[Rfam]
RNA sequence: GGAGCGGAUUCCGAAAAGCUUUAUAGAGUAGGAA
Numbered sequence: 001g002g003a004g005c006g007g008a009u010u011c012c013g014a015a016a017a018g019c020u021u022u023a024u025a026g027a028g029u030a031g032g033a034a
Base pairs, nucleotide, nucleotide: 002021003020004019005018010033011032012031

Rfam assigns this 34-nucleotide RNA to the family "DUF805b RNA".
Pairs were carried over by alignment from the consensus structure, which is taken from published work.
Its Rfam clan is "DUF805 clan".
It is one of the family's seed sequences.
By type it is a cis-regulatory element.